RNA sequence: CUUGAUCGAGCCCAGCCACAGCGGCCGGUCCGGCUCGCGGCCCUGACCGUAGGUUGCCAACAGCGCCUGUGCCUC
Numbered sequence: 001c002u003u004g005a006u007c008g009a010g011c012c013c014a015g016c017c018a019c020a021g022c023g024g025c026c027g028g029u030c031c032g033g034c035u036c037g038c039g040g041c042c043c044u045g046a047c048c049g050u051a052g053g054u055u056g057c058c059a060a061c062a063g064c065g066c067c068u069g070u071g072c073c074u075c
Stems, first nucleotide, its partner, number of pairs: 015025003034071001036069001038065002044059002047056001049054001